[Rfam]
Shown here is a 77-nucleotide RNA sequence from Alligator sinensis, a member of the family "Mammalian CPEB3 ribozyme". The organism belongs to Alligator, within Eukaryota.
RNA sequence: AGUCACAAGUUUAAGGCCAUAACAGAAGUGCUCACAGCGCAGCCAUAUCAGAUUCCAGUGAAUCUGUGAAUUCUGCU
Numbered sequence: 001a002g003u004c005a006c007a008a009g010u011u012u013a014a015g016g017c018c019a020u021a022a023c024a025g026a027a028g029u030g031c032u033c034a035c036a037g038c039g040c041a042g043c044c045a046u047a048u049c050a051g052a053u054u055c056c057a058g059u060g061a062a063u064c065u066g067u068g069a070a071u072u073c074u075g076c077u
Stems, first nucleotide, its partner, number of pairs: 015044003021077001023075005028040003049066007